A member of the RNA family "Pseudomonas sRNA P26" from Aeromonas simiae, 64 nucleotides long. Rfam classes the family as a non-coding RNA gene. The base pairs follow the family's consensus structure, which was predicted with RNAalifold. NCBI's taxonomy places the organism under Bacteria, Pseudomonadati, Pseudomonadota, Gammaproteobacteria, Aeromonas.
[Rfam]
RNA sequence: GCAUUUAUGUAGAUUAGCCUGAUUCAUUUCGGGCUAGGGCUGGUGAAUUUUUAUUCACCGGCCC
Number, nucleotide and partner (000 for none) at each position: 001g000002c000003a000004u000005u000006u000007a000008u000009g000010u000011a000012g000013a000014u000015u000016a035017g034018c033019c032020u000021g000022a000023u000024u000025c000026a000027u000028u000029u000030c000031g000032g019033g018034c017035u016036a000037g000038g063039g062040c061041u060042g059043g058044u057045g056046a055047a054048u000049u000050u000051u000052u000053a000054u047055u046056c045057a044058c043059c042060g041061g040062c039063c038064c000